RNA: MIR8562 microRNA precursor family
RNA sequence: UUUUCUACAAAUUGGAAUGAUUUGAAAUUUGGAGUGUGUGUUCAUCAAAAAUAGGAGAAUCUAAUAAAAAUAUAAAAAAAAUAAUUUACAAAAUAUAAAUUGAUCAAAAUACCCUUGAAAAUUUACGGGGGUAUUUUGGUCAAUUUAUAUUUUACGAAAUAUUUUUUUCAUAUUAUUAUUAGGUGCGCCUCAUUAAGAUGUACACACGCUCCAAAUUUCAGAUAAUUCCGAUUUAUAGAAAA
Numbered sequence: 001u002u003u004u005c006u007a008c009a010a011a012u013u014g015g016a017a018u019g020a021u022u023u024g025a026a027a028u029u030u031g032g033a034g035u036g037u038g039u040g041u042u043c044a045u046c047a048a049a050a051a052u053a054g055g056a057g058a059a060u061c062u063a064a065u066a067a068a069a070a071u072a073u074a075a076a077a078a079a080a081a082u083a084a085u086u087u088a089c090a091a092a093a094u095a096u097a098a099a100u101u102g103a104u105c106a107a108a109a110u111a112c113c114c115u116u117g118a119a120a121a122u123u124u125a126c127g128g129g130g131g132u133a134u135u136u137u138g139g140u141c142a143a144u145u146u147a148u149a150u151u152u153u154a155c156g157a158a159a160u161a162u163u164u165u166u167u168u169c170a171u172a173u174u175a176u177u178a179u180u181a182g183g184u185g186c187g188c189c190u191c192a193u194u195a196a197g198a199u200g201u202a203c204a205c206a207c208g209c210u211c212c213a214a215a216u217u218u219c220a221g222a223u224a225a226u227u228c229c230g231a232u233u234u235a236u237a238g239a240a241a242a
Stems, first nucleotide, its partner, number of pairs: 001242007009234010020223015036207006043200003061182004066177002069174005075168006096147019116125003
Dot-bracket structure: (((((((.((((((((((.(((((((((((((((.((((((.(((...............((((.((.(((((.((((((...............(((((((((((((((((((.(((....)))...)))))))))))))))))))...............)))))).))))).)).))))...............))).)))))).))))))))))))))).)))))))))).)))))))